[Rfam]
RNA sequence: AGAGCCAAGGUAACGAGGAGGACGAGCGAAACCUGAGAGCUUUCACGGAGGCUAUGACCAGGUAUUCCGCCCCUCCCGGUGACCUUCCCAGA
Numbered sequence: 001a002g003a004g005c006c007a008a009g010g011u012a013a014c015g016a017g018g019a020g021g022a023c024g025a026g027c028g029a030a031a032c033c034u035g036a037g038a039g040c041u042u043u044c045a046c047g048g049a050g051g052c053u054a055u056g057a058c059c060a061g062g063u064a065u066u067c068c069g070c071c072c073c074u075c076c077c078g079g080u081g082a083c084c085u086u087c088c089c090a091g092a
Stems, first nucleotide, its partner, number of pairs: 007086004013080002017076002020073002026071001030066001031063005038053006

This 92-nucleotide RNA from Orthohepacivirus hominis belongs to the Rfam family "Hepatitis C virus stem-loop SL8670". For this family Rfam cites "Functionally conserved architecture of hepatitis C virus RNA genomes" (Mauger et al., Proc Natl Acad Sci U S A, 2015). By type it is a cis-regulatory element. Pairs were carried over by alignment from the consensus structure, which was predicted with RNAfold.